[Rfam]
RNA sequence: CUCUGGAGAGCGCGUUUAAAUACGCCACCAAAGGGGAAGACUCAAUCCGAUCGCUGGAUGGAGUUAAACUCUCAGGUAAAAGGACAGAG
Numbered sequence: 001c002u003c004u005g006g007a008g009a010g011c012g013c014g015u016u017u018a019a020a021u022a023c024g025c026c027a028c029c030a031a032a033g034g035g036g037a038a039g040a041c042u043c044a045a046u047c048c049g050a051u052c053g054c055u056g057g058a059u060g061g062a063g064u065u066a067a068a069c070u071c072u073c074a075g076g077u078a079a080a081a082g083g084a085c086a087g088a089g
Stems, first nucleotide, its partner, number of pairs: 001089005012025004027077003031072001034071003040064004